Rfam assigns this 83-nucleotide sequence from Aggregatibacter segnis to the family "Aggregatibacter sRNA 69".
Rfam's curators write: Validated by RT-PCR. Has Rho-independent terminator.
A search with the family's covariance model found it, with a score of 74 bits.
By type it is a small RNA.
The base pairs follow the family's consensus structure, which was predicted with RNAfold.

RNA sequence: CACAUAAUUUAGACUUGAGGUUGCUAUUUUUUUUCAGGCGAACAAUAAUAGUACGCGAAUACGCGGGAGUAAAUGCUUUUCUC
Numbered sequence: 001c002a003c004a005u006a007a008u009u010u011a012g013a014c015u016u017g018a019g020g021u022u023g024c025u026a027u028u029u030u031u032u033u034u035c036a037g038g039c040g041a042a043c044a045a046u047a048a049u050a051g052u053a054c055g056c057g058a059a060u061a062c063g064c065g066g067g068a069g070u071a072a073a074u075g076c077u078u079u080u081c082u083c
Stems, first nucleotide, its partner, number of pairs: 009066002016059001019056001022053007031045002067078004